Shown here is a 559-nucleotide part of an RNA from Pyrobaculum arsenaticum, a member of the family "Archaeal large subunit ribosomal RNA". The organism belongs to Pyrobaculum arsenaticum, within Archaea. Gene Ontology terms of the family: ribosome and structural constituent of ribosome.
RNA sequence: CGGCAAAGCCGCCCGGUGGAUGGCUCGGCUCGGGCGCCGAAGAAGGGCGUGGCAAGCUGCGAUAAGCCCGGGGGAGCCGCAGGCAGGCUUAGAACCCGGGAUCCCCGAAUGGGGCUUCCUGCCGGGGCUGAACAAGCCCCGGCGCCCCGUAAGGGGCGGGAACGCGGGGAACGGAAACAUCUUAGUACCCGCAGGAAGAGAAGCCAACAGGGAACCCCUGAGUAGGGGCGACCGAAAGGGGGAGAGCCCAAACCAAAUCCCCACGGGAAAACCGUGGGGAGAUGUGGGGCAUGGGCCUGGGCAACCGCCGGCGGGCGGUAGCCGAAGUGGGCUGGAAAGCCCCGCCGUAGAGGGUGACAGCCCCGUAGGCUAAACCGCCCGUGGCGGAGUCCCGGGGUCCCGGAGUACCACGGCUUAGUUUUGCCGUGGGAACACGCCGGCCACUGGCCGGCAAGGCUAAGCACGUCCCGAGUCCGAUAGCGCACUAGUACCGUGAGGGAAAGCUGAAAAGAACCCCGGAAGGGGGGUGAAAAGAGCCUGAAACCGGGCGGCUACAGUG
Numbered sequence: 001c002g003g004c005a006a007a008g009c010c011g012c013c014c015g016g017u018g019g020a021u022g023g024c025u026c027g028g029c030u031c032g033g034g035c036g037c038c039g040a041a042g043a044a045g046g047g048c049g050u051g052g053c054a055a056g057c058u059g060c061g062a063u064a065a066g067c068c069c070g071g072g073g074g075a076g077c078c079g080c081a082g083g084c085a086g087g088c089u090u091a092g093a094a095c096c097c098g099g100g101a102u103c104c105c106c107g108a109a110u111g112g113g114g115c116u117u118c119c120u121g122c123c124g125g126g127g128c129u130g131a132a133c134a135a136g137c138c139c140c141g142g143c144g145c146c147c148c149g150u151a152a153g154g155g156g157c158g159g160g161a162a163c164g165c166g167g168g169g170a171a172c173g174g175a176a177a178c179a180u181c182u183u184a185g186u187a188c189c190c191g192c193a194g195g196a197a198g199a200g201a202a203g204c205c206a207a208c209a210g211g212g213a214a215c216c217c218c219u220g221a222g223u224a225g226g227g228g229c230g231a232c233c234g235a236a237a238g239g240g241g242g243a244g245a246g247c248c249c250a251a252a253c254c255a256a257a258u259c260c261c262c263a264c265g266g267g268a269a270a271a272c273c274g275u276g277g278g279g280a281g282a283u284g285u286g287g288g289g290c291a292u293g294g295g296c297c298u299g300g301g302c303a304a305c306c307g308c309c310g311g312c313g314g315g316c317g318g319u320a321g322c323c324g325a326a327g328u329g330g331g332c333u334g335g336a337a338a339g340c341c342c343c344g345c346c347g348u349a350g351a352g353g354g355u356g357a358c359a360g361c362c363c364c365g366u367a368g369g370c371u372a373a374a375c376c377g378c379c380c381g382u383g384g385c386g387g388a389g390u391c392c393c394g395g396g397g398u399c400c401c402g403g404a405g406u407a408c409c410a411c412g413g414c415u416u417a418g419u420u421u422u423g424c425c426g427u428g429g430g431a432a433c434a435c436g437c438c439g440g441c442c443a444c445u446g447g448c449c450g451g452c453a454a455g456g457c458u459a460a461g462c463a464c465g466u467c468c469c470g471a472g473u474c475c476g477a478u479a480g481c482g483c484a485c486u487a488g489u490a491c492c493g494u495g496a497g498g499g500a501a502a503g504c505u506g507a508a509a510a511g512a513a514c515c516c517c518g519g520a521a522g523g524g525g526g527g528u529g530a531a532a533a534g535a536g537c538c539u540g541a542a543a544c545c546g547g548g549c550g551g552c553u554a555c556a557g558u559g
Stems, first nucleotide, its partner, number of pairs: 007553010022538001023504002027475002029472006035465002045106003048061003067100006076088003111120003145156004163194001164192005174181002204211002215242005225233002245458004253287003263275004298394004306386004321370003327343001329342004346350001352364003408429007436452005491498002